[Rfam]
Nucleotides: 064
Base pairs, nucleotide, nucleotide: 001064003062004061005060015050016049017048018047019046020045021044022043023042024041029039030038031037
Number, partner (000 for none) and nucleotide at each position: 001064a002000a003062u004061a005060a006000g007000g008000u009000u010000a011000u012000g013000a014000u015050a016049a017048u018047u019046u020045a021044u022043u023042c024041c025000u026000a027000a028000a029039c030038u031037u032000u033000c034000a035000a036000a037031a038030a039029g040000a041024g042023g043022a044021g045020u046019a047018a048017a049016u050015u051000g052000g053000a054000u055000a056000u057000c058000u059000g060005u061004u062003a063000g064001u

The record is a 64-nucleotide RNA from Stegodyphus mimosarum, which matches "Selenocysteine insertion sequence 1" in Rfam. The incorporation of selenocysteine into a protein sequence is directed by an in-frame UGA codon (usually a stop codon) within the coding region of the mRNA. Selenoprotein mRNAs contain a conserved secondary structure in the 3' UTR that is required for the distinction of UGA stop from UGA selenocysteine. The selenocysteine insertion sequence (SECIS) is around 60 nt in length and adopts a hairpin structure which is sufficiently well-defined and conserved to act as a computational screen for selenoprotein genes. Its family is annotated with selenocysteine incorporation in the Gene Ontology. Pairs were carried over by alignment from the consensus structure, which is taken from published work. The family's RNA type in Rfam is cis-regulatory element.